This 130-nucleotide RNA from Caldanaerobius fijiensis belongs to the Rfam family "c-di-AMP riboswitch aptamer (ydaO/yuaA leader)".
A search with the family's covariance model found it, with a score of 88 bits.
RNA sequence: CAAAUCAUAAAGCCGAAUCUCCGAAAGGAGUACGGGGGAUUUUUUUCAGGGGUGAAUCUCGUGUGACGAGUAGGGUGUGUCCUCGACCCGAACCCGGCAACUAACCUCGGAGGCGAAGGAGGAGGAAGAA
Numbered sequence: 001c002a003a004a005u006c007a008u009a010a011a012g013c014c015g016a017a018u019c020u021c022c023g024a025a026a027g028g029a030g031u032a033c034g035g036g037g038g039a040u041u042u043u044u045u046u047c048a049g050g051g052g053u054g055a056a057u058c059u060c061g062u063g064u065g066a067c068g069a070g071u072a073g074g075g076u077g078u079g080u081c082c083u084c085g086a087c088c089c090g091a092a093c094c095c096g097g098c099a100a101c102u103a104a105c106c107u108c109g110g111a112g113g114c115g116a117a118g119g120a121g122g123a124g125g126a127a128g129a130a
Stems, first nucleotide, its partner, number of pairs: 012114003019030002033109005042049002050095003058070004073089004
The source organism's lineage runs through Bacteria, Clostridia, Thermoanaerobacterales, Thermoanaerobacteraceae and Caldanaerobius fijiensis. Pairs were carried over by alignment from the consensus structure.